[Rfam]
RNA sequence: UACCAAACCUUUUUGUCAGGGUGCUUCUCUAUCCGUUUUAGGAUAAACUUAUCUACAGAAGUGUCUGUUACUGUUUUGGAAGAGUAAUACUGUUCGCUUAUCCAUAUUUCCCCGUUCUGGGGAAGCCUCAUGGGUAAAUUAGAAGGACAACCUUUGUUUUAAAGGUAUACCUUCGCUUUUUAGAACAGCGAGGAUCUUAUGAGUUGAGCUUUUGUUAUUUGAGACUUUAUCUCGGGCUCCAUACAAUAUGUUCGUAGUAAAGAUCCUCACAAUU
Numbered sequence: 001u002a003c004c005a006a007a008c009c010u011u012u013u014u015g016u017c018a019g020g021g022u023g024c025u026u027c028u029c030u031a032u033c034c035g036u037u038u039u040a041g042g043a044u045a046a047a048c049u050u051a052u053c054u055a056c057a058g059a060a061g062u063g064u065c066u067g068u069u070a071c072u073g074u075u076u077u078g079g080a081a082g083a084g085u086a087a088u089a090c091u092g093u094u095c096g097c098u099u100a101u102c103c104a105u106a107u108u109u110c111c112c113c114g115u116u117c118u119g120g121g122g123a124a125g126c127c128u129c130a131u132g133g134g135u136a137a138a139u140u141a142g143a144a145g146g147a148c149a150a151c152c153u154u155u156g157u158u159u160u161a162a163a164g165g166u167a168u169a170c171c172u173u174c175g176c177u178u179u180u181u182a183g184a185a186c187a188g189c190g191a192g193g194a195u196c197u198u199a200u201g202a203g204u205u206g207a208g209c210u211u212u213u214g215u216u217a218u219u220u221g222a223g224a225c226u227u228u229a230u231c232u233c234g235g236g237c238u239c240c241a242u243a244c245a246a247u248a249u250g251u252u253c254g255u256a257g258u259a260a261a262g263a264u265c266c267u268c269a270c271a272a273u274u
Stems, first nucleotide, its partner, number of pairs: 003079005019066010030045005090188006098137008107125007142174005150166007190268004195263004205254005212246004218236007
RNA: Small nucleolar RNA snR191
Organism: Saccharomyces cerevisiae